[Rfam]
RNA sequence: UUUGCAGCGGCGAGUCAGAACGACCAGCUCCUGCUGAACUCCCCCAGGACCGGAAGGUAGCAAGGGUAAGUGGUUGAGCGGUGCGAUUUUGGCUCGCUAUUUU
Numbered sequence: 001u002u003u004g005c006a007g008c009g010g011c012g013a014g015u016c017a018g019a020a021c022g023a024c025c026a027g028c029u030c031c032u033g034c035u036g037a038a039c040u041c042c043c044c045c046a047g048g049a050c051c052g053g054a055a056g057g058u059a060g061c062a063a064g065g066g067u068a069a070g071u072g073g074u075u076g077a078g079c080g081g082u083g084c085g086a087u088u089u090u091g092g093c094u095c096g097c098u099a100u101u102u103u
Stems, first nucleotide, its partner, number of pairs: 009098012021085002023082002
Rfam assigns this 103-nucleotide sequence from Hymenobacter aquaticus to the family "Bacteroidales small SRP". The source organism's lineage runs through Bacteria, Bacteroidota, Cytophagia, Cytophagales and Hymenobacter. Its family is annotated with SRP-dependent cotranslational protein targeting to membrane, signal sequence recognition and signal recognition particle, plasma membrane targeting in the Gene Ontology. The base pairs follow the family's consensus structure, which is taken from published work. For this family Rfam cites "A high-resolution transcriptome map identifies small RNA regulation of metabolism in the gut microbe Bacteroides thetaiotaomicron" (Ryan et al., Nat Commun, 2020).